[Rfam]
RNA sequence: AAGGUUCCGGUUCACGCCAGCCAUCGGGGCGGGCGACCCGGAGUCC
Dot-bracket structure: ..((..((((....((((.(((.....))).))))..))))...))
Numbered sequence: 001a002a003g004g005u006u007c008c009g010g011u012u013c014a015c016g017c018c019a020g021c022c023a024u025c026g027g028g029g030c031g032g033g034c035g036a037c038c039c040g041g042a043g044u045c046c
Stems, first nucleotide, its partner, number of pairs: 003046002007041004015035004020030003
The record is a 46-nucleotide sequence from Bifidobacterium samirii, which matches "L31-Actinobacteria ribosomal protein leader" in Rfam. By type it is a cis-regulatory leader. A search with the family's covariance model found it, with a score of 46 bits. Taxonomically the source falls in Bifidobacterium (Bacteria, Bacillati, Actinomycetota, Bifidobacteriales).